A member of the RNA family "Bacterial RNase P class A" from Alteromonadaceae bacterium Bs31, 352 nucleotides long. The source organism's lineage runs through Bacteria, Pseudomonadati, Pseudomonadota, Alteromonadales and Alteromonadaceae. A search with the family's covariance model found it, with a score of 330 bits. It is annotated as a ribozyme. About the family: Ribonuclease P (RNase P) is a ubiquitous endoribonuclease, found in archaea, bacteria and eukarya as well as chloroplasts and mitochondria. Its best characterised activity is the generation of mature 5'-ends of tRNAs by cleaving the 5'-leader elements of precursor-tRNAs.

[Rfam]
RNA sequence: AGAGCUGGCCGGGCAAUCGCGUCAAUUGACGAGGAAAGUCCGGGCUCCAAAGGGUAGAACGCCAGGUAACGCCUGGGAGGUGUGAGCCUACGGAAAGUGCAGCAGAGAGUAGACCGCCGAUGGCCUUUCUUCGGAGAGCGCACAGGUAAGGGUGAAAGGGUGCGGUAAGAGCGCACCGCGCAACUGGCAACAGUUUGUGGCACGGUAAACCCCGUUCGGAGCAAGACCAAAUAGGAAUCCUACAGGUGUGACCCGCACUGGAUUCGGGUAGGUCGCUUGAAGCCUGUGGUGACGCAGGCUCUAGAUGAAUGAUUGUCCACGACAGAACCCGGCUUACAGGCCAGCUCUUUUU
Numbered sequence: 001a002g003a004g005c006u007g008g009c010c011g012g013g014c015a016a017u018c019g020c021g022u023c024a025a026u027u028g029a030c031g032a033g034g035a036a037a038g039u040c041c042g043g044g045c046u047c048c049a050a051a052g053g054g055u056a057g058a059a060c061g062c063c064a065g066g067u068a069a070c071g072c073c074u075g076g077g078a079g080g081u082g083u084g085a086g087c088c089u090a091c092g093g094a095a096a097g098u099g100c101a102g103c104a105g106a107g108a109g110u111a112g113a114c115c116g117c118c119g120a121u122g123g124c125c126u127u128u129c130u131u132c133g134g135a136g137a138g139c140g141c142a143c144a145g146g147u148a149a150g151g152g153u154g155a156a157a158g159g160g161u162g163c164g165g166u167a168a169g170a171g172c173g174c175a176c177c178g179c180g181c182a183a184c185u186g187g188c189a190a191c192a193g194u195u196u197g198u199g200g201c202a203c204g205g206u207a208a209a210c211c212c213c214g215u216u217c218g219g220a221g222c223a224a225g226a227c228c229a230a231a232u233a234g235g236a237a238u239c240c241u242a243c244a245g246g247u248g249u250g251a252c253c254c255g256c257a258c259u260g261g262a263u264u265c266g267g268g269u270a271g272g273u274c275g276c277u278u279g280a281a282g283c284c285u286g287u288g289g290u291g292a293c294g295c296a297g298g299c300u301c302u303a304g305a306u307g308a309a310u311g312a313u314u315g316u317c318c319a320c321g322a323c324a325g326a327a328c329c330c331g332g333c334u335u336a337c338a339g340g341c342c343a344g345c346u347c348u349u350u351u352u
Base pairs, nucleotide, nucleotide: 001348002347003346004345005344006343007342008341009340010339011337012317013316014315015314016313017312018311020031021030022029023028036335037334038333040332041331042330043329044328045221046220047219048218052254053253054252055251057217058216059215060214061213062076063075064074065073066072077091078089079088080087081086092212093211097210098209099206100205114151115150116147117146118145121142122141159177160176161175162174163173164172178201179199180198181197182196183195184193185192186191225274226273227272228271235265236264237263238262239261240260245259246258247257248256249255281300282299283298284297285296286295287294288293